[Rfam]
RNA sequence: AGUCACAGUGAUGGCUGACCAGGGCUUCCUGAUCUACACAGGCCUCUGCUAUGGGGAGAUGGCCAAUCCUAGUGUCUGAGUGAUU
Numbered sequence: 001a002g003u004c005a006c007a008g009u010g011a012u013g014g015c016u017g018a019c020c021a022g023g024g025c026u027u028c029c030u031g032a033u034c035u036a037c038a039c040a041g042g043c044c045u046c047u048g049c050u051a052u053g054g055g056g057a058g059a060u061g062g063c064c065a066a067u068c069c070u071a072g073u074g075u076c077u078g079a080g081u082g083a084u085u
Base pairs, nucleotide, nucleotide: 001085002084003083004082005081006080010076011075012074018073019072021070022069023068024067026065027062028061030059033057034056035055039053040052041050042049043048
Shown here is an 85-nucleotide sequence from Pteropus alecto, a member of the family "Small nucleolar RNA SNORD86". Rfam links the family to the GO terms RNA processing and nucleolus. Lineage of the source: Eukaryota > Eumetazoa > Eutheria > Pteropodinae > Pteropus. The family's RNA type in Rfam is C/D-box small nucleolar RNA.